[Rfam]
RNA sequence: CUGACCGCUCUGAACUCCAGUUCCUGGCGAGACUCUGGGGACCCAGACUCAUACGGGGAGAAACUGGACUGUCUGGCAUCGGGGAGA
Numbered sequence: 001c002u003g004a005c006c007g008c009u010c011u012g013a014a015c016u017c018c019a020g021u022u023c024c025u026g027g028c029g030a031g032a033c034u035c036u037g038g039g040g041a042c043c044c045a046g047a048c049u050c051a052u053a054c055g056g057g058g059a060g061a062a063a064c065u066g067g068a069c070u071g072u073c074u075g076g077c078a079u080c081g082g083g084g085a086g087a
Base pairs, nucleotide, nucleotide: 001086002085005082006081007080009078010076011075012074014072015071016068017067018066019065020064021063022059023058024057027052029050030049031048034047035046036045037044038043

Annotation
Rfam assigns this 87-nucleotide RNA sequence from Cnephaeus nilssonii to the family "mir-9230 microRNA precursor family". Gene Ontology terms of the family: RISC complex and miRNA-mediated post-transcriptional gene silencing. The organism belongs to Cnephaeus, within Eukaryota. Rfam 15.1 lists 859 matches to the family in 7 species.